Small nucleolar RNA SNORA64/SNORA10 family: a 132-nucleotide RNA from Castor canadensis. This family belongs to the H/ACA class of small nucleolar RNAs (snoRNAs) which act as guides in the the modification of uridines to pseudouridines. This family includes the human snoRNAs U64 and ACA10 and mouse MBI-29. The family's consensus secondary structure is taken from published work. The organism belongs to Castor, within Eukaryota. On this family, see Narayanan et al., EMBO J 1999: "Nucleolar localization signals of box H/ACA small nucleolar RNAs".
[Rfam]
RNA sequence: CCUCUCUCAGUUCGGCUGGAUCACACAACCCCAGUGUGUGUUUGGUGUAUUUCAAUAGAAAGAGAGGAAGACCCACCUAAUGUAUGGUUAAAUAAGCCCCAAAUCUUCUCUCUAUUCCUAGGUGUGACAGCU
Numbered sequence: 001c002c003u004c005u006c007u008c009a010g011u012u013c014g015g016c017u018g019g020a021u022c023a024c025a026c027a028a029c030c031c032c033a034g035u036g037u038g039u040g041u042u043u044g045g046u047g048u049a050u051u052u053c054a055a056u057a058g059a060a061a062g063a064g065a066g067g068a069a070g071a072c073c074c075a076c077c078u079a080a081u082g083u084a085u086g087g088u089u090a091a092a093u094a095a096g097c098c099c100c101a102a103a104u105c106u107u108c109u110c111u112c113u114a115u116u117c118c119u120a121g122g123u124g125u126g127a128c129a130g131c132u
Stems, first nucleotide, its partner, number of pairs: 002066006011058002019043002022040005074124005080119001082117001090113001092111001094109001096107001